The family of this 127-nucleotide sequence from Erinaceus europaeus is "Small nucleolar RNA SNORD22". The base pairs follow the family's consensus structure, which was predicted with PFOLD. The family has 49 seed sequences and 1,081 matches in Rfam 15.1.
Nucleotides: 127
Stems, first nucleotide, its partner, number of pairs: 001126004
Number, partner (000 for none) and nucleotide at each position: 001126u002125g003124c004123c005000u006000g007000u008000g009000a010000c011000g012000a013000a014000a015000c016000a017000c018000c019000c020000a021000a022000c023000u024000u025000g026000u027000c028000u029000u030000a031000u032000c033000u034000c035000c036000u037000g038000u039000c040000c041000u042000g043000a044000u045000c046000c047000c048000a049000g050000a051000g052000c053000u054000a055000g056000c057000a058000a059000a060000g061000g062000u063000g064000a065000g066000c067000c068000c069000a070000c071000u072000g073000g074000g075000a076000c077000u078000g079000g080000c081000u082000g083000g084000g085000g086000g087000a088000a089000a090000a091000g092000a093000g094000a095000a096000a097000a098000u099000u100000u101000u102000a103000u104000u105000c106000c107000a108000g109000a110000a111000g112000g113000a114000g115000c116000u117000g118000u119000c120000u121000g122000a123004g124003g125002u126001a127000u